[Rfam]
The family of this 92-nucleotide sequence from Prunus yedoensis is "mir-393 microRNA precursor family".
The pairing is the family consensus, mapped onto this sequence.
The literature on the family includes a 2012 paper in J Plant Physiol by Kruszka et al., "Role of microRNAs and other sRNAs of plants in their changing environments".
RNA sequence: AAAGGAGAUAUCCAAAGGGAUAGCAUGAUCCAAAUUAAACCACGGAAGAGAUGGCUAGUUGGGAUCAAUGCGAUCCCUUUGGAUACUUCCUC
Numbered sequence: 001a002a003a004g005g006a007g008a009u010a011u012c013c014a015a016a017g018g019g020a021u022a023g024c025a026u027g028a029u030c031c032a033a034a035u036u037a038a039a040c041c042a043c044g045g046a047a048g049a050g051a052u053g054g055c056u057a058g059u060u061g062g063g064a065u066c067a068a069u070g071c072g073a074u075c076c077c078u079u080u081g082g083a084u085a086c087u088u089c090c091u092c
Base pairs, nucleotide, nucleotide: 003091004090005089006088009085010084011083012082013081014080015079016078017077018076019075020074021073023071024070025069026067027066028065029064030063031062